[Rfam]
RNA sequence: AUACCUUUCUCGGCCUUUUGGCUAAGAUCAAGUGUAGUAUUUGUUCUGAUCAGUUCAAUAUCUGAUCCGUGGUCCAUUGGACCACACCGGGCAGUUCUAUUUGUGACGAUAUAUAUAUAUAUGUAUUGUCACAAGAUAUCACAGCACAAAAGUGAAAAGAAACAAC
Numbered sequence: 001a002u003a004c005c006u007u008u009c010u011c012g013g014c015c016u017u018u019u020g021g022c023u024a025a026g027a028u029c030a031a032g033u034g035u036a037g038u039a040u041u042u043g044u045u046c047u048g049a050u051c052a053g054u055u056c057a058a059u060a061u062c063u064g065a066u067c068c069g070u071g072g073u074c075c076a077u078u079g080g081a082c083c084a085c086a087c088c089g090g091g092c093a094g095u096u097c098u099a100u101u102u103g104u105g106a107c108g109a110u111a112u113a114u115a116u117a118u119a120u121a122u123g124u125a126u127u128g129u130c131a132c133a134a135g136a137u138a139u140c141a142c143a144g145c146a147c148a149a150a151a152g153u154g155a156a157a158a159g160a161a162a163c164a165a166c
Stems, first nucleotide, its partner, number of pairs: 008027003012023004048067006069085007103132008112123004135163001137157001139155004
The record is a 166-nucleotide RNA sequence from Chara braunii, which matches "U2 spliceosomal RNA" in Rfam. For this family Rfam cites "The spliceosomal snRNAs of Caenorhabditis elegans" (Thomas et al., Nucleic Acids Res, 1990). Rfam links the family to the GO terms U2 snRNP, mRNA branch site recognition and pre-mRNA branch point binding. Rfam describes the family as follows. U2 is a small nuclear RNA (snRNA) component of the spliceosome (involved in pre-mRNA splicing). Complementary binding between U2 snRNA (in an area lying towards the 5' end but 3' to hairpin I) and the branchpoint sequence (BPS) of the intron results the bulging out of an unpaired adenosine, on the BPS, which initiates a nucleophilic attack at the intronic 5' splice site, thus starting the first of two transesterification reactions that mediate splicing. Lineage of the source: Eukaryota > Viridiplantae > Streptophyta > Characeae > Chara. By type it is a spliceosomal small nuclear RNA. A search with the family's covariance model found it, with a score of 97 bits. Pairs were carried over by alignment from the consensus structure, which is taken from published work.